[Rfam]
RNA: glmS glucosamine-6-phosphate activated ribozyme aptamer
Organism: Acetohalobium arabaticum
RNA sequence: AUAAUAAUUAUAGCGCCCGGACUUGGCUUGAGGCCGAGUUGACGAGGAAGAGGUUCAUCGAGCAGAAUCGGCGGAUGCCUCUAGGCGGAGUUAGCUGCCUAAAUUAACUUCUUAAAACCUAUAGGUAACUAUAGGGUUAAAAAGAAGUUAAACUAACAAU
Numbered sequence: 001a002u003a004a005u006a007a008u009u010a011u012a013g014c015g016c017c018c019g020g021a022c023u024u025g026g027c028u029u030g031a032g033g034c035c036g037a038g039u040u041g042a043c044g045a046g047g048a049a050g051a052g053g054u055u056c057a058u059c060g061a062g063c064a065g066a067a068u069c070g071g072c073g074g075a076u077g078c079c080u081c082u083a084g085g086c087g088g089a090g091u092u093a094g095c096u097g098c099c100u101a102a103a104u105u106a107a108c109u110u111c112u113u114a115a116a117a118c119c120u121a122u123a124g125g126u127a128a129c130u131a132u133a134g135g136g137u138u139a140a141a142a143a144g145a146a147g148u149u150a151a152a153c154u155a156a157c158a159a160u
Stems, first nucleotide, its partner, number of pairs: 020040008049082005058071004083100006105150007118135007